[Rfam]
RNA sequence: AAAAAUAACCGCAUUCGAGUCCGAAAGCCUAAAGGAAGUGAAGCCCCCAUGGCCGGGGACCGAUGAGUAUAUCUGGAAACGGAUAUGCUUUCCGUGUUUGAGAAGAAUGCAGAUGAUUCCUGAA
Numbered sequence: 001a002a003a004a005a006u007a008a009c010c011g012c013a014u015u016c017g018a019g020u021c022c023g024a025a026a027g028c029c030u031a032a033a034g035g036a037a038g039u040g041a042a043g044c045c046c047c048c049a050u051g052g053c054c055g056g057g058g059a060c061c062g063a064u065g066a067g068u069a070u071a072u073c074u075g076g077a078a079a080c081g082g083a084u085a086u087g088c089u090u091u092c093c094g095u096g097u098u099u100g101a102g103a104a105g106a107a108u109g110c111a112g113a114u115g116a117u118u119c120c121u122g123a124a
Base pairs, nucleotide, nucleotide: 003118004117006115011110012109013108014107015106016105019060020059021058022057027053028052029051034047035046065090066089067088068087069086070085071084072083073082074081075080091101092100

Shown here is a 124-nucleotide RNA sequence from Eubacterium callanderi, a member of the family "Molybdenum/Tungsten riboswitch aptamer (Moco RNA motif)". The literature on the family includes a 2008 paper in Mol Microbiol by Regulski et al., "in molybdenum cofactor and tungsten cofactor metabolism". The organism belongs to Eubacterium, within Bacteria. Rfam 15.1 lists 1,248 matches to the family in 836 species.